[Rfam]
RNA sequence: UAUUAAAAAAUUCAUCCACUUUUGCUGUUAAAAAUUAGUCUUUGCACAUCAACAUGAGGUGUACGUCUCACUGUUUGACUAUUCUGUUAGUCACACAAGUUUUUAACAAUAGAAAUCGAUGAAAUUUUUAAUA
Numbered sequence: 001u002a003u004u005a006a007a008a009a010a011u012u013c014a015u016c017c018a019c020u021u022u023u024g025c026u027g028u029u030a031a032a033a034a035u036u037a038g039u040c041u042u043u044g045c046a047c048a049u050c051a052a053c054a055u056g057a058g059g060u061g062u063a064c065g066u067c068u069c070a071c072u073g074u075u076u077g078a079c080u081a082u083u084c085u086g087u088u089a090g091u092c093a094c095a096c097a098a099g100u101u102u103u104u105a106a107c108a109a110u111a112g113a114a115a116u117c118g119a120u121g122a123a124a125u126u127u128u129u130a131a132u133a
Stems, first nucleotide, its partner, number of pairs: 002132008011123006018116001020114005026108001028106006
This 133-nucleotide sequence from Gossypium harknessii belongs to the Rfam family "MIR7502 microRNA precursor family". Rfam links the family to the GO terms miRNA-mediated post-transcriptional gene silencing and RISC complex. A search with the family's covariance model found it, with a score of 76 bits.